The family of this 157-nucleotide RNA sequence from Populus tomentosa is "MIR2912 microRNA precursor family". Pairs were carried over by alignment from the consensus structure, which was predicted with RNAalifold. Rfam 15.1 lists 15,051 matches to the family in 15 species.
[Rfam]
Nucleotides: 157
Stems, first nucleotide, its partner, number of pairs: 005157003009151001011145010022133002025130001027129003035123003041119003045115001048112004054105002059100002063097001072088003
Number, partner (000 for none) and nucleotide at each position: 001000u002000c003000u004000a005157g006156a007155a008000c009151u010000c011145g012144a013143g014142a015141u016140a017139u018138g019137g020136g021000c022133u023132g024000a025130a026000c027129a028128c029127u030000g031000a032000a033000u034000a035123g036122u037121g038000u039000c040000u041119g042118g043117g044000c045115u046000g047000c048112a049111g050110g051109a052000c053000a054105g055104a056000u057000u058000c059100g060099g061000a062000c063097u064000u065000c066000u067000c068000c069000g070000u071000u072088g073087u074086u075000g076000c077000u078000a079000u080000a081000a082000u083000u084000u085000g086074a087073a088072c089000u090000u091000g092000a093000g094000a095000a096000c097063a098000a099060c100059c101000u102000u103000u104055u105054u106000a107000a108000a109051u110050c111049u112048u113000g114000a115045a116000c117043u118042c119041c120000a121037u122036a123035u124000g125000a126000a127029a128028g129027u130025u131000g132023u133022a134000a135000g136020c137019c138018u139017a140016u141015g142014u143013c144012u145011c146000a147000u148000a149000a150000a151009a152000u153000c154000u155007u156006u157005c

NCBI's taxonomy places the organism under Eukaryota, Streptophytina, Euphyllophyta, Saliceae, Populus.